[Rfam]
RNA: MIR6450 microRNA precursor family
RNA sequence: CGGACCCAAUUCUCUUGGGUCAUGCGUUAGGACCCAACUAGAUUGGGUCUGGUGUCAGGACCCAAUUCUCUUGCGUCCUGCGUCACGAUCCAAGACUAAUGGGUCCU
Dot-bracket structure: .(((((((....(((((((((.((....(((((.(((.....((((((((.......)))))))).....))).)))))....)).)))))))))....))))))).
Numbered sequence: 001c002g003g004a005c006c007c008a009a010u011u012c013u014c015u016u017g018g019g020u021c022a023u024g025c026g027u028u029a030g031g032a033c034c035c036a037a038c039u040a041g042a043u044u045g046g047g048u049c050u051g052g053u054g055u056c057a058g059g060a061c062c063c064a065a066u067u068c069u070c071u072u073g074c075g076u077c078c079u080g081c082g083u084c085a086c087g088a089u090c091c092a093a094g095a096c097u098a099a100u101g102g103g104u105c106c107u
Stems, first nucleotide, its partner, number of pairs: 002106007013095009023085002029079005035073003043065008